[Rfam]
RNA sequence: UCGACAUGUGACUAGCGAUCCUCUUCGGGGUUGAUUGCUUUUCUUAGUGGAGCAUCGGGGGCUUUCUGUAAAGUUGACUCCGAUCCACCUUGUCGUAUACCAACAGUCUGUGUGGCCCUCUACCGCUAUUUGAGAUGCCCGGGCUGGAUUGCAUAUUCCUUAUCCUUCCGUAGAUCCUAUGGGUCCGUGACGGUUAGGACAAACCAUGCAAAUUACAAAU
Numbered sequence: 001u002c003g004a005c006a007u008g009u010g011a012c013u014a015g016c017g018a019u020c021c022u023c024u025u026c027g028g029g030g031u032u033g034a035u036u037g038c039u040u041u042u043c044u045u046a047g048u049g050g051a052g053c054a055u056c057g058g059g060g061g062c063u064u065u066c067u068g069u070a071a072a073g074u075u076g077a078c079u080c081c082g083a084u085c086c087a088c089c090u091u092g093u094c095g096u097a098u099a100c101c102a103a104c105a106g107u108c109u110g111u112g113u114g115g116c117c118c119u120c121u122a123c124c125g126c127u128a129u130u131u132g133a134g135a136u137g138c139c140c141g142g143g144c145u146g147g148a149u150u151g152c153a154u155a156u157u158c159c160u161u162a163u164c165c166u167u168c169c170g171u172a173g174a175u176c177c178u179a180u181g182g183g184u185c186c187g188u189g190a191c192g193g194u195u196a197g198g199a200c201a202a203a204c205c206a207u208g209c210a211a212a213u214u215a216c217a218a219a220u
Stems, first nucleotide, its partner, number of pairs: 002095005008044001010043002014041001016037003021030003047088004057080003060075003149211006164198003169193001173185002176182002
Dot-bracket structure: .(((((.(.((..(.(((..(((....)))....)))...))))..((((......((((((..........)))..)))....))))..))))).....................................................((((((.........(((..(...((.((...)).)).......)..))).......)))))).........
Rfam assigns this 220-nucleotide sequence from Caenorhabditis elegans to the family "Small nucleolar RNA SNORA73 family". Rfam's curators put it in the seed alignment. A reference for the family is Cervelli et al. (2002), "Comparative Structure Analysis of Vertebrate U17 Small Nucleolar RNA (snoRNA)", J Mol Evol. By type it is an H/ACA-box small nucleolar RNA. U17 (SNORA73A and SNORA73B) also known as E1 belongs to the H/ACA class of small nucleolar RNAs (snoRNAs). Vertebrate U17 is intron-encoded and ranges in length from 200-230 nucleotides, longer than most snoRNAs. The family's consensus secondary structure is taken from published work. Rfam 15.1 lists 2,326 matches to the family in 660 species.